[Rfam]
RNA sequence: UCUUUGAACUGUGAUAGUUUUUUUGUUUUUUGAGUUGCUAGUAGGAUAUUUUAGAAAGUAAGUUUUUAUUCUCCAGCUUUCUGAGUAAAUCAGCGGUGACCAGACAACCCCUGAGAUGAAUCACAGAUGGGUUCCAAUGUUUCUUGUUUACUAAUUUCAUCUCACAUUU
Numbered sequence: 001u002c003u004u005u006g007a008a009c010u011g012u013g014a015u016a017g018u019u020u021u022u023u024u025g026u027u028u029u030u031u032g033a034g035u036u037g038c039u040a041g042u043a044g045g046a047u048a049u050u051u052u053a054g055a056a057a058g059u060a061a062g063u064u065u066u067u068a069u070u071c072u073c074c075a076g077c078u079u080u081c082u083g084a085g086u087a088a089a090u091c092a093g094c095g096g097u098g099a100c101c102a103g104a105c106a107a108c109c110c111c112u113g114a115g116a117u118g119a120a121u122c123a124c125a126g127a128u129g130g131g132u133u134c135c136a137a138u139g140u141u142u143c144u145u146g147u148u149u150a151c152u153a154a155u156u157u158c159a160u161c162u163c164a165c166a167u168u169u
Stems, first nucleotide, its partner, number of pairs: 002062003009054003013050004018045003022041002025038002113163008130145002